[Rfam]
Shown here is a 75-nucleotide RNA sequence from Oryzias javanicus, a member of the family "mir-205 microRNA precursor family". The organism belongs to Oryzias, within Eukaryota. Rfam links the family to the GO terms RISC complex and miRNA-mediated post-transcriptional gene silencing.
RNA sequence: GUCUUCUAUCCUUCAUUCCACCGGAGUCUGUAUAGAGUGCCACUCAGAUUUCAGUGGAUUGAAGAGUAAGAAACA
Numbered sequence: 001g002u003c004u005u006c007u008a009u010c011c012u013u014c015a016u017u018c019c020a021c022c023g024g025a026g027u028c029u030g031u032a033u034a035g036a037g038u039g040c041c042a043c044u045c046a047g048a049u050u051u052c053a054g055u056g057g058a059u060u061g062a063a064g065a066g067u068a069a070g071a072a073a074c075a
Base pairs, nucleotide, nucleotide: 011064012063013062014061015060019056020055021054023052024051025050026049028047029046030045
Dot-bracket structure: ..........(((((...(((.((((.(((..............))).)))).)))...)))))...........